[Rfam]
RNA sequence: GAUACUUAAGGAAAUGAAAUCUUCCCUGGGAAACCUAAACCGCCAUGUGCUGAUGACUUCUAGUCUUUU
Number, nucleotide and partner (000 for none) at each position: 001g000002a000003u000004a000005c000006u000007u000008a000009a000010g025011g024012a023013a022014a000015u000016g060017a059018a058019a000020u056021c055022u013023u012024c011025c010026c000027u000028g000029g000030g000031a000032a000033a000034c000035c000036u000037a000038a000039a000040c000041c000042g050043c049044c000045a000046u000047g000048u000049g043050c042051u000052g000053a000054u000055g021056a020057c000058u018059u017060c016061u000062a000063g000064u000065c000066u000067u000068u000069u000

Background:
Rfam assigns this 69-nucleotide RNA sequence from an Erysipelotrichia bacterium to the family "Fluoride riboswitch aptamer (crcB RNA motif)". The base pairs follow the family's consensus structure, which is taken from published work. Taxonomically the source falls in Erysipelotrichia (Bacteria, Bacillati, Bacillota). Rfam links the family to the GO terms response to fluoride and positive regulation of gene expression.